[Rfam]
RNA sequence: GUGCGUGCGGCAGUACCAUUCAAAGAGCUAUGACAAUCAGCAUGCUUAUACCUCUGAAAAUGGCGCUGCCACCUGCAC
Numbered sequence: 001g002u003g004c005g006u007g008c009g010g011c012a013g014u015a016c017c018a019u020u021c022a023a024a025g026a027g028c029u030a031u032g033a034c035a036a037u038c039a040g041c042a043u044g045c046u047u048a049u050a051c052c053u054c055u056g057a058a059a060a061u062g063g064c065g066c067u068g069c070c071a072c073c074u075g076c077a078c
Base pairs, nucleotide, nucleotide: 002077003076004075007072009070011068012067013066016063017062018061019060020059024055025054026053027052029050030049031048
RNA: mir-458 microRNA precursor family